[Rfam]
The record is a 193-nucleotide RNA from Epulopiscium sp. Nele67-Bin005, which matches "glmS glucosamine-6-phosphate activated ribozyme aptamer" in Rfam. The family's RNA type in Rfam is riboswitch.
RNA sequence: AAAAUUAUUAUAGCGCCAGAACUCUGUUUUUGUAUAGUGACUAUGAAAUUAAAUGUAACUUAUUGCUAUAUAUAGAGUUGACGAGGAAUAGAGUUAUCGAGUGGUUCGGCGGAUACUCUAGUGGUCUCACAGCCUAAUUAGAUAACAAAAAGAUAGGGUAACUUAUCUUACAAAAAGUCUAAAGUGAAAUUCU
Numbered sequence: 001a002a003a004a005u006u007a008u009u010a011u012a013g014c015g016c017c018a019g020a021a022c023u024c025u026g027u028u029u030u031u032g033u034a035u036a037g038u039g040a041c042u043a044u045g046a047a048a049u050u051a052a053a054u055g056u057a058a059c060u061u062a063u064u065g066c067u068a069u070a071u072a073u074a075g076a077g078u079u080g081a082c083g084a085g086g087a088a089u090a091g092a093g094u095u096a097u098c099g100a101g102u103g104g105u106u107c108g109g110c111g112g113a114u115a116c117u118c119u120a121g122u123g124g125u126c127u128c129a130c131a132g133c134c135u136a137a138u139u140a141g142a143u144a145a146c147a148a149a150a151a152g153a154u155a156g157g158g159u160a161a162c163u164u165a166u167c168u169u170a171c172a173a174a175a176a177g178u179c180u181a182a183a184g185u186g187a188a189a190u191u192c193u
Base pairs, nucleotide, nucleotide: 020079021078022077023076024075025074026073027072029070089120090119091118092117093116097109098108099107100106121133122129123128138182139181140180141179142178143177151168152167153166154165155164156163157162
Rfam's curators write: This entry contains a glucosamine-6-phosphate activated ribozyme that is found in the mRNA for GlmS. GlmS is an enzyme that uses fructose-6-phosphate and glutamine to generate glucosamine-6-phosphate. The ribozyme catalyses self cleavage of the glmS mRNA that is thought to regulate GlmS activity. Taxonomically the source falls in Candidatus Epulonipiscium (Bacteria, Bacillati, Bacillota, Clostridia).